[Rfam]
RNA sequence: GCAGUCUGCCGGUCUGUCGCUCAUCCCUUGGGAUGGGAGGAACGUCCGGGCAACACAGAGCACCAUACUUCUUAACGGGAAGCUGUCCGCGAGGGUAGAGUAACGUAACAGAAAACGACCGCCGGAUUCGUCCGGUAAGGGUGAAAAGGUGAGGUAAGAGCUCACCGGGUCCUAUAGUAAUAUAGGAUGCCGUACGUCUUAUGGGUUGUAAGGUCAUGUAUACCGGCGCAUGUAGGAUUGCUCGUCCGAUGCCGGGGGGUAGACCGCUAAAGCUUACUGGUGACAGUAAGACGAGAUAAAUGGCAGACGCUUCCGUGCAAACGGAAGUACAGAACCCGGCUUACAGGCAGACUGCUUUU
Dot-bracket structure: ((((((((((((((((((.(((((((....)))))))....[.[.[[[[[((((...[[[[.((((((((((.....)))))(.((((....)))).)((..(((((...........((((((((....))))))..)).......((((((.......)))))).(((((((((....)))))))).)..))))))))))))))))...((((.......(((((.......((((.]]]]))))...)))))......)))).......(((((((....)))))))...........)))))))..........................]]]]]].].).))))))))))....

Source information:
Rfam assigns this 359-nucleotide RNA sequence from Parabacteroides sp. AF48-14 to the family "Bacterial RNase P class A". Lineage of the source: Bacteria > Pseudomonadati > Bacteroidota > Bacteroidales > Parabacteroides. The base pairs follow the family's consensus structure, which is taken from published work.